[Rfam]
RNA sequence: ACUCCUGGUUAGUUUUGCUGGCUUUGCAGUCAGUUGGGGGUUCUCGUUGCUGUGCAAAUCCACGCAAAACUGACUGUGUCU
Numbered sequence: 001a002c003u004c005c006u007g008g009u010u011a012g013u014u015u016u017g018c019u020g021g022c023u024u025u026g027c028a029g030u031c032a033g034u035u036g037g038g039g040g041u042u043c044u045c046g047u048u049g050c051u052g053u054g055c056a057a058a059u060c061c062a063c064g065c066a067a068a069a070c071u072g073a074c075u076g077u078g079u080c081u
Stems, first nucleotide, its partner, number of pairs: 004078001006076013020061002023058006032051003
mir-19 microRNA precursor family: an 81-nucleotide RNA from Chiloscyllium punctatum. Rfam links the family to the GO terms miRNA-mediated post-transcriptional gene silencing and RISC complex. Clan: mir-19 clan. The literature on the family includes a 2003 paper in Dev Cell by Houbaviy et al., "Embryonic stem cell-specific MicroRNAs".